[Rfam]
RNA sequence: GGCGUAUGUUGCCCAGGCGGAGUUCGAAAGCCCGUUCAAGCGAUGAAGGCGUUCAUCGACCAGCACCGCGAAGUCUAUGGAGUCGUGCCGAUCUGCAAGGUGCUGCCGAUCGCUCCA
Dot-bracket structure: ...............(((...........))).............................................(((((......((.((.(((......))).)).)))))))
Numbered sequence: 001g002g003c004g005u006a007u008g009u010u011g012c013c014c015a016g017g018c019g020g021a022g023u024u025c026g027a028a029a030g031c032c033c034g035u036u037c038a039a040g041c042g043a044u045g046a047a048g049g050c051g052u053u054c055a056u057c058g059a060c061c062a063g064c065a066c067c068g069c070g071a072a073g074u075c076u077a078u079g080g081a082g083u084c085g086u087g088c089c090g091a092u093c094u095g096c097a098a099g100g101u102g103c104u105g106c107c108g109a110u111c112g113c114u115c116c117a
Stems, first nucleotide, its partner, number of pairs: 016032003078117005089112002092109002095106003
Background:
The record is a 117-nucleotide RNA sequence from Methylococcus capsulatus, which matches "ALIL pseudoknot" in Rfam. Rfam links the family to the GO term positive regulation of translational frameshifting. On this family, see Mazauric et al., J Biol Chem 2008: "Apical loop-internal loop RNA pseudoknots: a new type of stimulator of -1 translational frameshifting in bacteria".